[Rfam]
RNA sequence: CCCCUUUGCAAGCGCGCUGAAAGUCCCUAUAUUCAAAGCGUUCCCGCAAUGGAACUAUGGACAUAAACGCGCUCGUAAUAAGCGGAUCGGACCCGGGGGCGGUACCCGGCGACUCCACCAAAAUCCUUCAUUUGAGGAUCAUGGGGUCGAAACAGGAUCGACGAACGUCUAAAGGAGUUAUGCUUUGUCCCGGUGAGGUACCACCGUUAUCGGUCCGAAACGUACAGUUGCAAAUGACAACCGUGCUCCGGUGGCCGUUGCUGCGUAAGCAGUAACCAUACCGAAACCUAAGCCCUUGCGCCUAGCAGCGUAAGGCGGGGUUCGCAGGCACCUGGCAACAGAAGCCUGCACU
Numbered sequence: 001c002c003c004c005u006u007u008g009c010a011a012g013c014g015c016g017c018u019g020a021a022a023g024u025c026c027c028u029a030u031a032u033u034c035a036a037a038g039c040g041u042u043c044c045c046g047c048a049a050u051g052g053a054a055c056u057a058u059g060g061a062c063a064u065a066a067a068c069g070c071g072c073u074c075g076u077a078a079u080a081a082g083c084g085g086a087u088c089g090g091a092c093c094c095g096g097g098g099g100c101g102g103u104a105c106c107c108g109g110c111g112a113c114u115c116c117a118c119c120a121a122a123a124u125c126c127u128u129c130a131u132u133u134g135a136g137g138a139u140c141a142u143g144g145g146g147u148c149g150a151a152a153c154a155g156g157a158u159c160g161a162c163g164a165a166c167g168u169c170u171a172a173a174g175g176a177g178u179u180a181u182g183c184u185u186u187g188u189c190c191c192g193g194u195g196a197g198g199u200a201c202c203a204c205c206g207u208u209a210u211c212g213g214u215c216c217g218a219a220a221c222g223u224a225c226a227g228u229u230g231c232a233a234a235u236g237a238c239a240a241c242c243g244u245g246c247u248c249c250g251g252u253g254g255c256c257g258u259u260g261c262u263g264c265g266u267a268a269g270c271a272g273u274a275a276c277c278a279u280a281c282c283g284a285a286a287c288c289u290a291a292g293c294c295c296u297u298g299c300g301c302c303u304a305g306c307a308g309c310g311u312a313a314g315g316c317g318g319g320g321u322u323c324g325c326a327g328g329c330a331c332c333u334g335g336c337a338a339c340a341g342a343a344g345c346c347u348g349c350a351c352u
Stems, first nucleotide, its partner, number of pairs: 040055005059190005069183002071178004083167002087164003093109005110149007191206004197216002200214003318333004324349006